This 100-nucleotide RNA sequence from Microbacterium thalassium belongs to the Rfam family "mraW RNA".
RNA sequence: CUGAGCCCCUCGGUCCUGACUCCCAGCCGCUCCCGCCCUGACGCACUUCCCCGGCGCCAGGUCAGAGCGGAUGGGGAUCAGGACCGAGGGACACAGCACC
Numbered sequence: 001c002u003g004a005g006c007c008c009c010u011c012g013g014u015c016c017u018g019a020c021u022c023c024c025a026g027c028c029g030c031u032c033c034c035g036c037c038c039u040g041a042c043g044c045a046c047u048u049c050c051c052c053g054g055c056g057c058c059a060g061g062u063c064a065g066a067g068c069g070g071a072u073g074g075g076g077a078u079c080a081g082g083a084c085c086g087a088g089g090g091a092c093a094c095a096g097c098a099c100c
Base pairs, nucleotide, nucleotide: 010087011086012085013084014083015082016081018079019078021076022075023074024073025072027070028069029068030067031066033065035063037061038060039059040058042056043055044054

The family's RNA type in Rfam is cis-regulatory element.